Shown here is a 106-nucleotide RNA from Eutrema salsugineum, a member of the family "Plant small nucleolar RNA R71".
RNA sequence: AACCCAUGGUGUGGGCACUGGUUAGUGUAGCUCCUGAAUCUCUCCCAUGCUUCACCAAAACUCUCACUGCUAUGUUGAGUGAAGCUGGAGAUUUGGUUUCUAGGUU
Numbered sequence: 001a002a003c004c005c006a007u008g009g010u011g012u013g014g015g016c017a018c019u020g021g022u023u024a025g026u027g028u029a030g031c032u033c034c035u036g037a038a039u040c041u042c043u044c045c046c047a048u049g050c051u052u053c054a055c056c057a058a059a060a061c062u063c064u065c066a067c068u069g070c071u072a073u074g075u076u077g078a079g080u081g082a083a084g085c086u087g088g089a090g091a092u093u094u095g096g097u098u099u100c101u102a103g104g105u106u
Stems, first nucleotide, its partner, number of pairs: 001106001003104002006101001058073001060071001
The family's RNA type in Rfam is C/D-box small nucleolar RNA. The base pairs follow the family's consensus structure, which was predicted with PFOLD.